[Rfam]
RNA: mir-316 microRNA precursor family
RNA sequence: AAAUUCUAGUCGAUUUGUCUUUUUCCGCUUACUGGCGUUUAAUUCAAACAACGACAGGAAAGGGAAAAAGGCGUAUUUACUAUGAGUUU
Numbered sequence: 001a002a003a004u005u006c007u008a009g010u011c012g013a014u015u016u017g018u019c020u021u022u023u024u025c026c027g028c029u030u031a032c033u034g035g036c037g038u039u040u041a042a043u044u045c046a047a048a049c050a051a052c053g054a055c056a057g058g059a060a061a062g063g064g065a066a067a068a069a070g071g072c073g074u075a076u077u078u079a080c081u082a083u084g085a086g087u088u089u
Base pairs, nucleotide, nucleotide: 008081009080010079012077013076017072019070020069021068022067023066024065025064028062029061030060032057033056034055036053037052038051039050